RNA sequence: CUCUUAUCCUGAGCUGGCGGAGGGACAGGCCCAAUGAAGCCCGGCAACCUGCUUGAUUAUAGGCGGCAGUCAUAACAGAGACUGACCAGCACUUAUAUCAUUAUAAGAUUAUUUUCAAGACAAAGGUGCUAACCUGCAGCAAGGGCAAAACCUUGAGCGAUAAGAG
Numbered sequence: 001c002u003c004u005u006a007u008c009c010u011g012a013g014c015u016g017g018c019g020g021a022g023g024g025a026c027a028g029g030c031c032c033a034a035u036g037a038a039g040c041c042c043g044g045c046a047a048c049c050u051g052c053u054u055g056a057u058u059a060u061a062g063g064c065g066g067c068a069g070u071c072a073u074a075a076c077a078g079a080g081a082c083u084g085a086c087c088a089g090c091a092c093u094u095a096u097a098u099c100a101u102u103a104u105a106a107g108a109u110u111a112u113u114u115u116c117a118a119g120a121c122a123a124a125g126g127u128g129c130u131a132a133c134c135u136g137c138a139g140c141a142a143g144g145g146c147a148a149a150a151c152c153u154u155g156a157g158c159g160a161u162a163a164g165a166g
Stems, first nucleotide, its partner, number of pairs: 001166008013042001016041003022032003026139001028137001029135001043130004048126002050122002053119001140155005

SAM riboswitch aptamer (S box leader): a 166-nucleotide sequence from Bacillus sp. FJAT-27231.
The organism belongs to Bacillus, within Bacteria.
Rfam's curators write: The SAM riboswitch is found upstream of a number of genes which code for proteins involved in methionine or cysteine biosynthesis in Gram-positive bacteria.